[Rfam]
RNA sequence: GCUCUAUGAUGAUUCCCCAUGCGUGUCAUCUGAGUGCAGUUUCCCUGUUCUCCCAGGUGUUUGAGCGUGUUUUGCCCUCAAGUUUCUGGGCUGGCAGAGGUCUCUGUGCACAUGAUCAUACUUUAAUUCUGAGAGC
Numbered sequence: 001g002c003u004c005u006a007u008g009a010u011g012a013u014u015c016c017c018c019a020u021g022c023g024u025g026u027c028a029u030c031u032g033a034g035u036g037c038a039g040u041u042u043c044c045c046u047g048u049u050c051u052c053c054c055a056g057g058u059g060u061u062u063g064a065g066c067g068u069g070u071u072u073u074g075c076c077c078u079c080a081a082g083u084u085u086c087u088g089g090g091c092u093g094g095c096a097g098a099g100g101u102c103u104c105u106g107u108g109c110a111c112a113u114g115a116u117c118a119u120a121c122u123u124u125a126a127u128u129c130u131g132a133g134a135g136c
Stems, first nucleotide, its partner, number of pairs: 001136004043099001045097003050094002

The family of this 136-nucleotide RNA from Sarcophilus harrisii is "Small nucleolar RNA SNORD10". The family's RNA type in Rfam is C/D-box small nucleolar RNA. Pairs were carried over by alignment from the consensus structure, which was predicted with WAR. The organism belongs to Sarcophilus, within Eukaryota.